[Rfam]
RNA: c-di-AMP riboswitch aptamer (ydaO/yuaA leader)
Organism: Arthrobacter nitrophenolicus
RNA sequence: CUGCCACUUCCCGGAUUCCGCUUGAUCGAAGGCAGAGGCGGGGGACCCACCGUCCCGGGCACUGAUUGCCCUUGGGGUUAAGCCAGCACGUGAUUUUUCCGUGCGGCCGGAUGCCCUCAUCCGAACCCGACAGCUAACUCCGCAGGUGUGAGAGGCGAU
Numbered sequence: 001c002u003g004c005c006a007c008u009u010c011c012c013g014g015a016u017u018c019c020g021c022u023u024g025a026u027c028g029a030a031g032g033c034a035g036a037g038g039c040g041g042g043g044g045a046c047c048c049a050c051c052g053u054c055c056c057g058g059g060c061a062c063u064g065a066u067u068g069c070c071c072u073u074g075g076g077g078u079u080a081a082g083c084c085a086g087c088a089c090g091u092g093a094u095u096u097u098u099c100c101g102u103g104c105g106g107c108c109g110g111a112u113g114c115c116c117u118c119a120u121c122c123g124a125a126c127c128c129g130a131c132a133g134c135u136a137a138c139u140c141c142g143c144a145g146g147u148g149u150g151a152g153a154g155g156c157g158a159u
Stems, first nucleotide, its partner, number of pairs: 009148001011146002016037003038143006048074002075128003083106002109122004